[Rfam]
RNA sequence: ACAGAAGCCGCUGAAUUAGAGUUUGACAGCGUAAGACUUCCGCCGGACAUAGGACAAAGAGG
Numbered sequence: 001a002c003a004g005a006a007g008c009c010g011c012u013g014a015a016u017u018a019g020a021g022u023u024u025g026a027c028a029g030c031g032u033a034a035g036a037c038u039u040c041c042g043c044c045g046g047a048c049a050u051a052g053g054a055c056a057a058a059g060a061g062g
Stems, first nucleotide, its partner, number of pairs: 004040004009031005014023003
Dot-bracket structure: ...((((.((((((((....)))...))))).....))))......................
The record is a 62-nucleotide RNA, which matches "cow-rumen-1 RNA" in Rfam. It is one of the family's seed sequences.